[Rfam]
RNA sequence: CGCGCCUUGCGGCAACGCCUGACGUGAUUGGGCAGAAGUCAGCAGACGGCACAGUAGCCAAACGCCCACUGUAAUGGGUGGGACAGGGUGAAGGCC
Numbered sequence: 001c002g003c004g005c006c007u008u009g010c011g012g013c014a015a016c017g018c019c020u021g022a023c024g025u026g027a028u029u030g031g032g033c034a035g036a037a038g039u040c041a042g043c044a045g046a047c048g049g050c051a052c053a054g055u056a057g058c059c060a061a062a063c064g065c066c067c068a069c070u071g072u073a074a075u076g077g078g079u080g081g082g083a084c085a086g087g088g089u090g091a092a093g094g095c096c
Stems, first nucleotide, its partner, number of pairs: 001026002004023001006021001009018003038047003048096003057089003067080001
RNA: Group II catalytic intron D1-D4-1
Organism: Methylocaldum marinum